The record is a 125-nucleotide sequence from Sciurus vulgaris, which matches "Small nucleolar RNA SNORA28" in Rfam.
RNA sequence: AAGCAACACUCUGUGGCAGAUUGAUCAAAACUGACAAAAUUUUAGCUCGUUAUACAGCAAGAAAGUCUAACCUAUUCUGGUGUUCUCUCUUGCAUGAGACAAACCGUUGUCUAGACUUAAACUGU
Numbered sequence: 001a002a003g004c005a006a007c008a009c010u011c012u013g014u015g016g017c018a019g020a021u022u023g024a025u026c027a028a029a030a031c032u033g034a035c036a037a038a039a040u041u042u043u044a045g046c047u048c049g050u051u052a053u054a055c056a057g058c059a060a061g062a063a064a065g066u067c068u069a070a071c072c073u074a075u076u077c078u079g080g081u082g083u084u085c086u087c088u089c090u091u092g093c094a095u096g097a098g099a100c101a102a103a104c105c106g107u108u109g110u111c112u113a114g115a116c117u118u119a120a121a122c123u124g125u
Stems, first nucleotide, its partner, number of pairs: 009045002012038001014036002017033003021029002063118007074110002078106004086099004

Taxonomically the source falls in Sciurus (Eukaryota, Eumetazoa, Vertebrata, Amniota). It scores 96 bits against the family's covariance model. Pairs were carried over by alignment from the consensus structure, which was predicted with RNAfold. ACA28 is a member of the H/ACA class of snoRNA that guide the sites of modification of uridines to pseudouridines. By type it is an H/ACA-box small nucleolar RNA. The literature on the family includes a 2001 paper in EMBO J by Huttenhofer et al., "RNomics: an experimental approach that identifies 201 candidates for novel, small, non-messenger RNAs in mouse".